[Rfam]
RNA sequence: UAGAAAAUCGAAUAAUUAGCUCAUAUAAUUCUCAUAAUAUGGAUGAGAAGUUUCUACAAAAUGACCGUAAAUCAUUUGGCUAUGAGCGAAAGUGUACCUAGG
Dot-bracket structure: ..................(((((((...(((((((.......))))))).........((((((.......))))))...)))))))...............
This 102-nucleotide RNA sequence from Keratinibaculum paraultunense belongs to the Rfam family "Purine riboswitch aptamer". On this family, see Mandal et al., Cell 2003: "Riboswitches Control Fundamental Biochemical Pathways in Bacillus subtilis and Other Bacteria". The organism belongs to Keratinibaculum, within Bacteria. The family's consensus secondary structure is taken from published work.